[Rfam]
RNA: Small nucleolar RNA CD11
RNA sequence: AAUUGUCUUAAUGAGGAUUGAUUUAGCAGAAGAGUUCUUGAAGACUAUAUUCAUCACCCAAAACUGAAAUACCUU
Numbered sequence: 001a002a003u004u005g006u007c008u009u010a011a012u013g014a015g016g017a018u019u020g021a022u023u024u025a026g027c028a029g030a031a032g033a034g035u036u037c038u039u040g041a042a043g044a045c046u047a048u049a050u051u052c053a054u055c056a057c058c059c060a061a062a063a064c065u066g067a068a069a070u071a072c073c074u075u
Base pairs, nucleotide, nucleotide: 002070003069029037030036031035
Dot-bracket structure: .((.........................(((...)))...............................)).....